Annotation
Shown here is a 78-nucleotide RNA sequence from Acanthochromis polyacanthus, a member of the family "U1A polyadenylation inhibition element (PIE)". About the family: This family represents the U1A polyadenylation inhibition element (PIE). PIE is a regulatory RNA which is responsible for the regulation of the length of the polyA tail of the U1A pre-mRNA. The PIE is located in the U1A mRNA 3' UTR. PIE adopts a U-shaped structure, with binding sites for a single U1A protein at each bend and when complexed with the two proteins it blocks activity of poly(A) polymerase (PAP), and inhibits its activity. A reference for the family is Clerte and Hall (2004), "Global and Local Dynamics of the U1A Polyadenylation Inhibition Element (PIE) RNA and PIE RNA-U1A Complexes", Biochemistry. By type it is a cis-regulatory element. The match comes from Rfam's covariance-model search (73 bits). Rfam links the family to the GO term regulation of mRNA polyadenylation.
[Rfam]
RNA sequence: UCACAAAGCAUUGCACCCAGGGUCUGGUCUACCAGACAUUGUACCUGGAGCUUUUUUAUUUUUGGAAUUAAAUUUUUU
Numbered sequence: 001u002c003a004c005a006a007a008g009c010a011u012u013g014c015a016c017c018c019a020g021g022g023u024c025u026g027g028u029c030u031a032c033c034a035g036a037c038a039u040u041g042u043a044c045c046u047g048g049a050g051c052u053u054u055u056u057u058a059u060u061u062u063u064g065g066a067a068u069u070a071a072a073u074u075u076u077u078u
Base pairs, nucleotide, nucleotide: 005054006053007052008051009050017048018047019046020045022037023036024035025034026033